[Rfam]
RNA: azaaromatic riboswitch aptamer (yjdF RNA)
RNA sequence: UGGCUGUGCGCACGAAAUCGCGGUCCGGUUGGUAGCCCGGACGCUGUCGUAGUACGGCAGUCUGUAUCCGCCCUCUCCAGGGAUGUCCCGUGUGCCGGAAUCCGGC
Number, nucleotide and partner (000 for none) at each position: 001u000002g000003g000004c098005u097006g096007u000008g095009c094010g093011c092012a091013c000014g000015a000016a000017a000018u000019c000020g000021c000022g000023g042024u041025c040026c039027g038028g037029u000030u000031g000032g000033u000034a000035g000036c000037c028038c027039g026040g025041a024042c023043g061044c060045u059046g058047u057048c056049g055050u054051a000052g000053u000054a050055c049056g048057g047058c046059a045060g044061u043062c000063u000064g000065u000066a000067u000068c000069c000070g000071c082072c081073c080074u079075c000076u000077c000078c000079a074080g073081g072082g071083a000084u000085g000086u000087c000088c000089c000090g000091u012092g011093u010094g009095c008096c006097g005098g004099a000100a000101u000102c000103c000104g000105g000106c000